[Rfam]
RNA sequence: UGAAUGCACUUAUUGUACGUUGCUUUGGAUAAAAGCGUCUGCUAAAUGACAUGUA
Numbered sequence: 001u002g003a004a005u006g007c008a009c010u011u012a013u014u015g016u017a018c019g020u021u022g023c024u025u026u027g028g029a030u031a032a033a034a035g036c037g038u039c040u041g042c043u044a045a046a047u048g049a050c051a052u053g054u055a
Stems, first nucleotide, its partner, number of pairs: 014044001015042003021037006

The family of this 55-nucleotide RNA sequence from Gasterosteus aculeatus is "UnaL2 LINE 3' element". Rfam 15.1 lists 493,311 matches to the family in 99 species. The organism belongs to Gasterosteus, within Eukaryota. The match comes from Rfam's covariance-model search (57 bits).